[Rfam]
Description:
The family of this 123-nucleotide RNA sequence from Leminorella richardii is "Phenylalanine leader peptide".

RNA sequence: CAAGUAUGAAUCCUGCUAUUUUCCGCUUCUUCUUUUACUUUAGCGCCUGACAUCAGGGGGCUUGCGCGUAAGAGAAGAAACGAAAAACAGCGCCGAAAGCCUCCGUCAGGAGGCUUUUUUAUU
Numbered sequence: 001c002a003a004g005u006a007u008g009a010a011u012c013c014u015g016c017u018a019u020u021u022u023c024c025g026c027u028u029c030u031u032c033u034u035u036u037a038c039u040u041u042a043g044c045g046c047c048u049g050a051c052a053u054c055a056g057g058g059g060g061c062u063u064g065c066g067c068g069u070a071a072g073a074g075a076a077g078a079a080a081c082g083a084a085a086a087a088c089a090g091c092g093c094c095g096a097a098a099g100c101c102u103c104c105g106u107c108a109g110g111a112g113g114c115u116u117u118u119u120u121a122u123u
Stems, first nucleotide, its partner, number of pairs: 015091003020086003024082002027079007035071004046057003059065001096117009

The family's RNA type in Rfam is cis-regulatory leader. Gene Ontology term of the family: cellular amino acid metabolic process. Pairs were carried over by alignment from the consensus structure, which was predicted with CMfinder. A reference for the family is Gurvich et al. (2010), "Two groups of phenylalanine biosynthetic operon leader peptides genes: a high level of apparently incidental frameshifting in decoding Escherichia coli pheL", Nucleic Acids Res. Lineage of the source: Bacteria > Gammaproteobacteria > Enterobacterales > Budviciaceae > Leminorella.